[Rfam]
RNA sequence: GGAUGGUCUGAAGGAAGGGAGUUAUCUCACUUGAUUGUUCACAGUCAGUUACAGAUUGAACCUAUUCUACUAUUAAUACUUUCCCCCCUUCUCACUACUGCACUUGACUAGUCAAAA
Numbered sequence: 001g002g003a004u005g006g007u008c009u010g011a012a013g014g015a016a017g018g019g020a021g022u023u024a025u026c027u028c029a030c031u032u033g034a035u036u037g038u039u040c041a042c043a044g045u046c047a048g049u050u051a052c053a054g055a056u057u058g059a060a061c062c063u064a065u066u067c068u069a070c071u072a073u074u075a076a077u078a079c080u081u082u083c084c085c086c087c088c089u090u091c092u093c094a095c096u097a098c099u100g101c102a103c104u105u106g107a108c109u110a111g112u113c114a115a116a117a
Stems, first nucleotide, its partner, number of pairs: 001113002004110005010105002014101001016096002019093003044077002047074002

A member of the RNA family "Y RNA" from Microcebus murinus, 117 nucleotides long. NCBI's taxonomy places the organism under Eukaryota, Metazoa, Sarcopterygii, Strepsirrhini, Microcebus. Rfam classes the family as a non-coding RNA gene. About the family: Y RNAs are components of the Ro ribonucleoprotein particle (Ro RNP), in association with Ro60 and La proteins. The Y RNAs and Ro60 and La proteins are well conserved, but the function of the Ro RNP is not known. In humans the RNA component can be one of four small RNAs -- hY1, hY3, hY4 and hY5.